RNA sequence: CUAUACGGCUUCGCCAGCUCUCCAUGAUAUCAGCUUCGGAGCCAGAUCAAAAAGGAGGAAUACCGCAGGCCUGCGGUGCGGCAGUGUGGAGACCUGCCGUAAGCCGUGUUGUUUUGACAACCGGGAGAAAGCGUAUGCGGAGGCAGCGCUUUCAGGGUCUUAUUGCCAUGGCA
Numbered sequence: 001c002u003a004u005a006c007g008g009c010u011u012c013g014c015c016a017g018c019u020c021u022c023c024a025u026g027a028u029a030u031c032a033g034c035u036u037c038g039g040a041g042c043c044a045g046a047u048c049a050a051a052a053a054g055g056a057g058g059a060a061u062a063c064c065g066c067a068g069g070c071c072u073g074c075g076g077u078g079c080g081g082c083a084g085u086g087u088g089g090a091g092a093c094c095u096g097c098c099g100u101a102a103g104c105c106g107u108g109u110u111g112u113u114u115u116g117a118c119a120a121c122c123g124g125g126a127g128a129a130a131g132c133g134u135a136u137g138c139g140g141a142g143g144c145a146g147c148g149c150u151u152u153c154a155g156g157g158u159c160u161u162a163u164u165g166c167c168a169u170g171g172c173a
Stems, first nucleotide, its partner, number of pairs: 007043007016035004063076004067160006077101008086093002104124003109120004127153008136145003